[Rfam]
Rfam assigns this 219-nucleotide sequence from Intestinibacter bartlettii to the family "raiA RNA". The base pairs follow the family's consensus structure, which is taken from published work. The source organism's lineage runs through Bacteria, Clostridia, Peptostreptococcales, Peptostreptococcaceae and Intestinibacter bartlettii. Rfam's curators put it in the seed alignment.
RNA sequence: AUUAUUCAGGUCUGUGGUUGAAAGUCCAGGCCAGUCGCAGGCAAAGGGAUCCACGUAAGUCAACGCCAAAAGCGGAGUUGAUGAUCAUGGUGCGGCUUAGAAGUAAGACCUACCGAUAACCAAAAAAAUUCUAAAUCGAGACGGCUAGUAGUGCGGCAAACCCAGAGCGAACGUCGCAGUAGGCGAGUGUGGGGUCAAAAACCAGGUCAGCUGAAUAGU
Numbered sequence: 001a002u003u004a005u006u007c008a009g010g011u012c013u014g015u016g017g018u019u020g021a022a023a024g025u026c027c028a029g030g031c032c033a034g035u036c037g038c039a040g041g042c043a044a045a046g047g048g049a050u051c052c053a054c055g056u057a058a059g060u061c062a063a064c065g066c067c068a069a070a071a072g073c074g075g076a077g078u079u080g081a082u083g084a085u086c087a088u089g090g091u092g093c094g095g096c097u098u099a100g101a102a103g104u105a106a107g108a109c110c111u112a113c114c115g116a117u118a119a120c121c122a123a124a125a126a127a128a129u130u131c132u133a134a135a136u137c138g139a140g141a142c143g144g145c146u147a148g149u150a151g152u153g154c155g156g157c158a159a160a161c162c163c164a165g166a167g168c169g170a171a172c173g174u175c176g177c178a179g180u181a182g183g184c185g186a187g188u189g190u191g192g193g194g195u196c197a198a199a200a201a202c203c204a205g206g207u208c209a210g211c212u213g214a215a216u217a218g219u
Base pairs, nucleotide, nucleotide: 001219002218003217004216005215006214007213008212009211012210013209014208015204016203017202018201019200028190030188031041033097034096035095036094037093038092039091050090051089055085058082060080062078088197109183110182111181112180113179114138115137116136142176143175144174145173151168152167155163156162